[Rfam]
RNA sequence: CCUAGUUCUCACGAACUAGGCUUAGUUAUGGCGUGCCUUCAGCACU
Numbered sequence: 001c002c003u004a005g006u007u008c009u010c011a012c013g014a015a016c017u018a019g020g021c022u023u024a025g026u027u028a029u030g031g032c033g034u035g036c037c038u039u040c041a042g043c044a045c046u
Base pairs, nucleotide, nucleotide: 001020002019003018004017005016006015007014008013033045034044035043036042
Description: Rfam assigns this 46-nucleotide RNA sequence from Lentisphaera araneosa to the family "Acido-Lenti-1 RNA". Lineage of the source: Bacteria > Pseudomonadati > Lentisphaeria > Lentisphaeraceae > Lentisphaera araneosa. The family's RNA type in Rfam is small RNA.